RNA sequence: UCCAUGGGGUUGCGAUCACCCCACGAGGCGACAGCCGAAGCAUCGCGUCCGAUAAACCGCCAGGCGGAGGACGCGCCAUG
Numbered sequence: 001u002c003c004a005u006g007g008g009g010u011u012g013c014g015a016u017c018a019c020c021c022c023a024c025g026a027g028g029c030g031a032c033a034g035c036c037g038a039a040g041c042a043u044c045g046c047g048u049c050c051g052a053u054a055a056a057c058c059g060c061c062a063g064g065c066g067g068a069g070g071a072c073g074c075g076c077c078a079u080g
Stems, first nucleotide, its partner, number of pairs: 005023006045074006
A member of the RNA family "chrB-a RNA" from Ensifer meliloti, 80 nucleotides long. Rfam classes the family as a cis-regulatory element. The base pairs follow the family's consensus structure, which is taken from published work.